[Rfam]
RNA sequence: CUUGCCGCCGGACGGGAGGGGUCGUGAGGGUUGGGGAGCCCAAUGACCGAGUCCUUGCCGAGACGGCCGAGGGUCUUAGGGAGCCCGAGGUCGGUCGCUCUGGCGAAGGAG
Numbered sequence: 001c002u003u004g005c006c007g008c009c010g011g012a013c014g015g016g017a018g019g020g021g022u023c024g025u026g027a028g029g030g031u032u033g034g035g036g037a038g039c040c041c042a043a044u045g046a047c048c049g050a051g052u053c054c055u056u057g058c059c060g061a062g063a064c065g066g067c068c069g070a071g072g073g074u075c076u077u078a079g080g081g082a083g084c085c086c087g088a089g090g091u092c093g094g095u096c097g098c099u100c101u102g103g104c105g106a107a108g109g110a111g
Stems, first nucleotide, its partner, number of pairs: 006105007013060003018054003022050003028041005062096003065092003071086004
Dot-bracket structure: .....((((((((((..(((.(((...(((((....)))))......))).)))...))).((((((...((((........))))...))).)))..)))))))......

Annotation: Shown here is a 111-nucleotide sequence, a member of the family "Actinomyces-1 RNA". Rfam classes the family as a small RNA. The base pairs follow the family's consensus structure, which is taken from published work.